[Rfam]
RNA: Y RNA-like
RNA sequence: CCGGCGAAUGCCGGUGGAACUACAGGACAGCGUGGUCGCGGGUUCGAGUCCCGUUCACCGCAAGGUGCUAGCUCAGAGGCAGAGCGCGCUGCAUGUUUCACCUUCACUUGUCGCCGUUUG
Numbered sequence: 001c002c003g004g005c006g007a008a009u010g011c012c013g014g015u016g017g018a019a020c021u022a023c024a025g026g027a028c029a030g031c032g033u034g035g036u037c038g039c040g041g042g043u044u045c046g047a048g049u050c051c052c053g054u055u056c057a058c059c060g061c062a063a064g065g066u067g068c069u070a071g072c073u074c075a076g077a078g079g080c081a082g083a084g085c086g087c088g089c090u091g092c093a094u095g096u097u098u099c100a101c102c103u104u105c106a107c108u109u110g111u112c113g114c115c116g117u118u119u120g
Base pairs, nucleotide, nucleotide: 002116003115004114005113006112007111013102014101015100016099017098018097019096023091031088032087033086038054039053040052041051042050045079056067057066058065059064071085072084073083074082